[Rfam]
RNA sequence: UUAAAUGCACAGAUAGGGAAGAGUAGCUUCCGAACCCUUUUCAGAGAGAGGAAUCCAUUGGCUGGGAGGUUCCUUAGGAUGUACGAGGUGAAGGUCGCCCUGGAGCAGCUUUACUGAACACAAGUAAGUAAGGUCGGCGAAAAGCCGUUAUCAUGUCGAGUGUGCCAAUGGUGAUGAUUCCAUAGGCAAACAAAGGUGGUACCGCGAGUAAACUCUCUUCGUCCUUUGA
Numbered sequence: 001u002u003a004a005a006u007g008c009a010c011a012g013a014u015a016g017g018g019a020a021g022a023g024u025a026g027c028u029u030c031c032g033a034a035c036c037c038u039u040u041u042c043a044g045a046g047a048g049a050g051g052a053a054u055c056c057a058u059u060g061g062c063u064g065g066g067a068g069g070u071u072c073c074u075u076a077g078g079a080u081g082u083a084c085g086a087g088g089u090g091a092a093g094g095u096c097g098c099c100c101u102g103g104a105g106c107a108g109c110u111u112u113a114c115u116g117a118a119c120a121c122a123a124g125u126a127a128g129u130a131a132g133g134u135c136g137g138c139g140a141a142a143a144g145c146c147g148u149u150a151u152c153a154u155g156u157c158g159a160g161u162g163u164g165c166c167a168a169u170g171g172u173g174a175u176g177a178u179u180c181c182a183u184a185g186g187c188a189a190a191c192a193a194a195g196g197u198g199g200u201a202c203c204g205c206g207a208g209u210a211a212a213c214u215c216u217c218u219u220c221g222u223c224c225u226u227u228g229a
Stems, first nucleotide, its partner, number of pairs: 007106002015101004026089005039078003050073006109133007135147003163188004168183004193226004204222005

T-box leader: a 229-nucleotide RNA from Halalkalibacterium halodurans. The family's RNA type in Rfam is cis-regulatory leader. Gene Ontology term of the family: tRNA binding.